[Rfam]
RNA sequence: AGGAGAGUUGAUGGACCGAGAGGUGAAGAUGGAGCAGGUACAGAUUGGAUUGAUUACGGCGGAAGGAUAAUAACUCACGAAGGGAGCUUGAAGUGGUUUCCUGGCCCUCGAAAUAAGCAGCAGAGGGGACGAGCGGUAUAUAGAAUACCGGUCUUGUGAACAUCAGAGGAUGUCAUGCGGCAGGGUUGCCAGUAACUCCCACGUACACGGGGCGAAGAGGAACAAGCGUGUACUUACA
Numbered sequence: 001a002g003g004a005g006a007g008u009u010g011a012u013g014g015a016c017c018g019a020g021a022g023g024u025g026a027a028g029a030u031g032g033a034g035c036a037g038g039u040a041c042a043g044a045u046u047g048g049a050u051u052g053a054u055u056a057c058g059g060c061g062g063a064a065g066g067a068u069a070a071u072a073a074c075u076c077a078c079g080a081a082g083g084g085a086g087c088u089u090g091a092a093g094u095g096g097u098u099u100c101c102u103g104g105c106c107c108u109c110g111a112a113a114u115a116a117g118c119a120g121c122a123g124a125g126g127g128g129a130c131g132a133g134c135g136g137u138a139u140a141u142a143g144a145a146u147a148c149c150g151g152u153c154u155u156g157u158g159a160a161c162a163u164c165a166g167a168g169g170a171u172g173u174c175a176u177g178c179g180g181c182a183g184g185g186u187u188g189c190c191a192g193u194a195a196c197u198c199c200c201a202c203g204u205a206c207a208c209g210g211g212g213c214g215a216a217g218a219g220g221a222a223c224a225a226g227c228g229u230g231u232a233c234u235u236a237c238a
Stems, first nucleotide, its partner, number of pairs: 007030003015024003076158003081102007105127005128155002131153002134150005161183001203233007
RNA: Clostridiales-3 RNA